[Rfam]
RNA sequence: CAUGUAUCAGUAACAGUGCUUACUAUAGCUG
Numbered sequence: 001c002a003u004g005u006a007u008c009a010g011u012a013a014c015a016g017u018g019c020u021u022a023c024u025a026u027a028g029c030u031g
Base pairs, nucleotide, nucleotide: 001031002030005027006026007025009024010023011022012021013020014018
RNA: Iron response element II
Organism: Clarias magur